Description:
The family of this 62-nucleotide RNA from Thermanaerovibrio acidaminovorans is "Fluoride riboswitch aptamer (crcB RNA motif)". Pairs were carried over by alignment from the consensus structure, which is taken from published work. The organism belongs to Thermanaerovibrio acidaminovorans, within Bacteria. It scores 44 bits against the family's covariance model.

RNA sequence: CAAAGAGAGGGUGAUGGGGCUCACCCGAAACUGCUUUUCAAGCUGAUGGCCUCUGCGGACCU
Numbered sequence: 001c002a003a004a005g006a007g008a009g010g011g012u013g014a015u016g017g018g019g020c021u022c023a024c025c026c027g028a029a030a031c032u033g034c035u036u037u038u039c040a041a042g043c044u045g046a047u048g049g050c051c052u053c054u055g056c057g058g059a060c061c062u
Stems, first nucleotide, its partner, number of pairs: 010025004016053006033043003